[Rfam]
A member of the RNA family "skipping-rope RNA" from Sellimonas intestinalis, 80 nucleotides long.
RNA sequence: GUUAUUUUAAGGAUAGAACAGGUAGCUAUCACGCCCUAGCAAUCUUAAAGAGAUGCCAGAGUUCCACCCGGCUGAAUAAC
Numbered sequence: 001g002u003u004a005u006u007u008u009a010a011g012g013a014u015a016g017a018a019c020a021g022g023u024a025g026c027u028a029u030c031a032c033g034c035c036c037u038a039g040c041a042a043u044c045u046u047a048a049a050g051a052g053a054u055g056c057c058a059g060a061g062u063u064c065c066a067c068c069c070g071g072c073u074g075a076a077u078a079a080c
Base pairs, nucleotide, nucleotide: 001080002079003078004077005076006075007074009073012030013029014028015027016026021065022064024062032050033040034039055072056071057070059068